[Rfam]
RNA sequence: AAAGGAGCAAUAACCAAUUUCUUGUUCUAUCAAGAGUGUUGGUAUUGCUCCUUUAU
Dot-bracket structure: ((((((((((((.(....((((((......))))))....).))))))))))))..

Background:
Shown here is a 56-nucleotide RNA, a member of the family "Plastid-psbA-3 3UTR RNA". Plastid psbA-3 is a non-coding RNA (ncRNA) present in plastids. It was identified in inverted repeat sequences in the 3 prime untranslate region (3UTR) of photosystem II quinone-binding protein (psbA). Rfam's curators put it in the seed alignment.